[Rfam]
Rfam assigns this 132-nucleotide RNA sequence from a Caulobacteraceae bacterium to the family "Caulobacter sRNA CrfA".
RNA sequence: GCGAGACAGGGAGGCCGUCAAGAGCUUCCCAUCUCCGGCGUUUCGGGGAGGAAACGCCCGCUUGGAUCGAGUGAUCGAGGAAAUGUUGGGCCCGUUGCGAUUAUCCCCCGCAACGGGCCCUUCGUCUUUUUG
Numbered sequence: 001g002c003g004a005g006a007c008a009g010g011g012a013g014g015c016c017g018u019c020a021a022g023a024g025c026u027u028c029c030c031a032u033c034u035c036c037g038g039c040g041u042u043u044c045g046g047g048g049a050g051g052a053a054a055c056g057c058c059c060g061c062u063u064g065g066a067u068c069g070a071g072u073g074a075u076c077g078a079g080g081a082a083a084u085g086u087u088g089g090g091c092c093c094g095u096u097g098c099g100a101u102u103a104u105c106c107c108c109c110g111c112a113a114c115g116g117g118c119c120c121u122u123c124g125u126c127u128u129u130u131u132g
Stems, first nucleotide, its partner, number of pairs: 001036001003035004009029001012027004016022001037058008064129003067078004085123001088120012
The literature on the family includes a 2008 paper in Mol Microbiol by Landt et al., "Small non-coding RNAs in Caulobacter crescentus". Rfam 15.1 lists 41 matches to the family in 41 species. The family's RNA type in Rfam is small RNA. The pairing is the family consensus, mapped onto this sequence.